[Rfam]
RNA sequence: CAAACGGCUCUUUUAAGAGCCACACACUUCCCACAACGAGCUCUGG
Numbered sequence: 001c002a003a004a005c006g007g008c009u010c011u012u013u014u015a016a017g018a019g020c021c022a023c024a025c026a027c028u029u030c031c032c033a034c035a036a037c038g039a040g041c042u043c044u045g046g
Stems, first nucleotide, its partner, number of pairs: 006021006

Rfam assigns this 46-nucleotide RNA from Menidia menidia to the family "Histone 3' UTR stem-loop". The family has 50 seed sequences and 44,596 matches in Rfam 15.1. It scores 36 bits against the family's covariance model. It is annotated as a cis-regulatory element.